Annotation
The family of this 143-nucleotide RNA sequence from Micromonospora avicenniae is "c-di-AMP riboswitch aptamer (ydaO/yuaA leader)". Rfam describes the family as follows. This family represents a conserved RNA structure found upstream of the ydaO and yuaA genes in Bacillus subtilis and related genes in other bacteria.
[Rfam]
RNA sequence: CGUGCCGACCCGCCUAAUCGUGAUUCCACGAGCCGGGGACCCACAUGCACGUCCGGGGUGAAUCCGCGAGCCACGGCCCGCGGUAGGGCGAUCUUCCCGCCCGAAUCCGUCAGCUAACCCGGUAGGCGGUGCCGGAAGGAGUU
Numbered sequence: 001c002g003u004g005c006c007g008a009c010c011c012g013c014c015u016a017a018u019c020g021u022g023a024u025u026c027c028a029c030g031a032g033c034c035g036g037g038g039a040c041c042c043a044c045a046u047g048c049a050c051g052u053c054c055g056g057g058g059u060g061a062a063u064c065c066g067c068g069a070g071c072c073a074c075g076g077c078c079c080g081c082g083g084u085a086g087g088g089c090g091a092u093c094u095u096c097c098c099g100c101c102c103g104a105a106u107c108c109g110u111c112a113g114c115u116a117a118c119c120c121g122g123u124a125g126g127c128g129g130u131g132c133c134g135g136a137a138g139g140a141g142u143u
Stems, first nucleotide, its partner, number of pairs: 011128004018031003032123006042055001056108003064083004086102004